[Rfam]
Nucleotides: 098
Stems, first nucleotide, its partner, number of pairs: 004092005010085006018076003022072002025067004035060004043052003
Number, partner (000 for none) and nucleotide at each position: 001000g002000g003000g004092a005091g006090g007089u008088u009000g010085g011084c012083g013082a014081u015080g016000g017000a018076c019075g020074a021000g022072a023071c024000a025067c026066u027065c028064g029000c030000c031000a032000a033000c034000c035060g036059g037058g038057u039000c040000a041000g042000a043052u044051c045050c046000g047000g048000a049000a050045g051044g052043a053000a054000g055000c056000a057038g058037c059036c060035c061000u062000a063000a064028c065027g066026a067025g068000c069000c070000c071023g072022u073000a074020u075019c076018g077000g078000g079000u080015c081014g082013u083012u084011g085010u086000c087000c088008g089007a090006c091005c092004u093000c094000c095000c096000a097000c098000u
Bacterial small signal recognition particle RNA: a 98-nucleotide RNA sequence from Terrihabitans soli. The family is grouped with related families in Rfam's "SRP clan". It scores 58 bits against the family's covariance model. Rfam describes the family as follows. The signal recognition particle (SRP) is a universally conserved ribonucleoprotein involved in the co-translational targeting of proteins to membranes.